[Rfam]
This 71-nucleotide RNA sequence from Medicago truncatula belongs to the Rfam family "MIR5269 microRNA precursor family".

RNA sequence: UUGGUUUAAAUCAUUGUGGGUCUACACUUGGAAAAUUGCAAAGUGGUGGGACAUACAUUGAUUUCAUCCAA
Numbered sequence: 001u002u003g004g005u006u007u008a009a010a011u012c013a014u015u016g017u018g019g020g021u022c023u024a025c026a027c028u029u030g031g032a033a034a035a036u037u038g039c040a041a042a043g044u045g046g047u048g049g050g051a052c053a054u055a056c057a058u059u060g061a062u063u064u065c066a067u068c069c070a071a
Stems, first nucleotide, its partner, number of pairs: 001071004006066001008064006015057004022049003025045005031039001
Gene Ontology terms of the family: RISC complex and miRNA-mediated post-transcriptional gene silencing.